7SK RNA: a 342-nucleotide sequence from Anolis carolinensis. NCBI's taxonomy places the organism under Eukaryota, Metazoa, Amniota, Lepidosauria, Anolis. Pairs were carried over by alignment from the consensus structure, which is taken from published work. The literature on the family includes a 2002 paper in Curr Biol by Blencowe, "Transcription: surprising role for an elusive small nuclear RNA". About the family: 7SK was discovered as an abundant small nuclear RNA in the mid-70s but a possible function has only recently been suggested. Two independent studies have found that 7SK RNA binds the CDK9/cyclin T complex (known as elongation factor P-TEFb). P-TEFb activates transcription by phosphorylating the C-terminal domain of RNA polymerase II. This process is negatively regulated by the 7SK RNP. The secondary structure of 7SK RNA shown here was proposed by Wasserman and Steitz on the basis of chemical modification and enzymatic cleavage experiments. This family contains a number of annotated pseudogenes and 7SK derived repeats. The threshold is artificially high to minimise the pseudogene count. Rfam 15.1 lists 49,373 matches to the family in 668 species.
[Rfam]
RNA sequence: GGAUGUGAGGGUGAUCUGGCUGCGACAUCUGUCACCCCAUUGAUCGCCAGGGUUAAUUUGGCUGAUCUGGCUGGCUAGGCGGGUGUCCCCUUCCUCCCUCACCGCUCCAUGUGCGUCCCUCCCGAAGCUGCACGCUCGGUGGAAGAGGAUGACAUCCCAGGUAUAGAAGAAGUGUACUGAGGUCUCCAGUCUUUGGUCCCGGGUAUACGAUAGCUGCGCUCUCUUGCUAGAACCUCCAAACAAGCUCAAGGUCCAUUUGUAGGAGAACGUAGGGUACUCAGAUAUUAUAGAAUUGUACUUUCAGUUCCUAUUAAUAGUUCAUUUUGUACUUGGCAAAUCAGA
Number, nucleotide and partner (000 for none) at each position: 001g108002g107003a106004u000005g102006u101007g100008a099009g098010g097011g096012u000013g093014a092015u000016c000017u000018g090019g089020c000021u000022g000023c000024g087025a086026c085027a084028u083029c082030u081031g080032u079033c078034a000035c074036c073037c070038c069039a068040u000041u000042g067043a066044u065045c064046g062047c061048c060049a000050g000051g000052g000053u000054u000055a000056a000057u000058u000059u000060g048061g047062c046063u000064g045065a044066u043067c042068u039069g038070g037071c000072u000073g036074g035075c000076u000077a000078g033079g032080c031081g030082g029083g028084u027085g026086u025087c024088c000089c019090c018091u000092u014093c013094c000095u000096c011097c010098c009099u008100c007101a006102c005103c000104g000105c000106u003107c002108c001109a000110u000111g000112u000113g000114c000115g000116u170117c169118c000119c166120u165121c000122c139123c138124g137125a136126a000127g135128c134129u000130g000131c000132a000133c000134g128135c127136u125137c124138g123139g122140u161141g000142g000143a000144a000145g000146a000147g157148g156149a155150u000151g000152a000153c000154a000155u149156c148157c147158c000159a000160g000161g140162u000163a000164u000165a120166g119167a000168a000169g117170a116171a000172g000173u000174g000175u000176a000177c000178u000179g000180a000181g000182g000183u000184c000185u000186c000187c000188a000189g000190u000191c000192u000193u000194u000195g000196g000197u000198c000199c000200c000201g000202g000203g000204u000205a000206u000207a000208c000209g000210a000211u000212a000213g283214c000215u281216g000217c000218g000219c000220u276221c000222u274223c273224u272225u271226g270227c269228u000229a000230g000231a000232a000233c000234c265235u264236c263237c262238a000239a000240a260241c259242a258243a257244g256245c000246u000247c000248a000249a000250g000251g000252u000253c000254c000255a000256u244257u243258u242259g241260u240261a000262g237263g236264a235265g234266a000267a000268c000269g227270u226271a225272g224273g223274g222275u000276a220277c000278u000279c000280a000281g215282a000283u213284a000285u000286u000287a000288u000289a000290g000291a000292a000293u000294u000295g000296u000297a000298c000299u000300u000301u000302c000303a000304g000305u000306u000307c000308c341309u340310a000311u337312u336313a000314a000315u333316a330317g329318u328319u000320c326321a000322u000323u000324u000325u000326g320327u000328a318329c317330u316331u000332g000333g315334c000335a000336a312337a311338u000339c000340a309341g308342a000